[Rfam]
RNA sequence: AAUUAGCCCCGAUUGCAGUGGUUAUCCUUUUUUUUGGUUGGGAAAUCAGUGUGAGGGCGAAAAAAAGAUAGUAACGGAAAGCGGGAAUUUGU
Numbered sequence: 001a002a003u004u005a006g007c008c009c010c011g012a013u014u015g016c017a018g019u020g021g022u023u024a025u026c027c028u029u030u031u032u033u034u035u036g037g038u039u040g041g042g043a044a045a046u047c048a049g050u051g052u053g054a055g056g057g058c059g060a061a062a063a064a065a066a067g068a069u070a071g072u073a074a075c076g077g078a079a080a081g082c083g084g085g086a087a088u089u090u091g092u
Base pairs, nucleotide, nucleotide: 009084010083011082013080014079018075019074023070024069025068026067029065030064031063032062033061034060035059036058
RNA: Flavo-1 RNA